The record is a 74-nucleotide RNA from Diabrotica virgifera, which matches "mir-929 microRNA precursor family" in Rfam.
A search with the family's covariance model found it, with a score of 85 bits.
The organism belongs to Diabrotica virgifera, within Eukaryota.
Its family is annotated with miRNA-mediated post-transcriptional gene silencing and RISC complex in the Gene Ontology.
RNA sequence: CGGGGUCAAAUUGACUCUAGUAGGGAGUCCGUUACUUAUUAGCGACUCCCUAACGGAGUCAGAUUGACUCCCUU
Numbered sequence: 001c002g003g004g005g006u007c008a009a010a011u012u013g014a015c016u017c018u019a020g021u022a023g024g025g026a027g028u029c030c031g032u033u034a035c036u037u038a039u040u041a042g043c044g045a046c047u048c049c050c051u052a053a054c055g056g057a058g059u060c061a062g063a064u065u066g067a068c069u070c071c072c073u074u
Stems, first nucleotide, its partner, number of pairs: 011062008021052009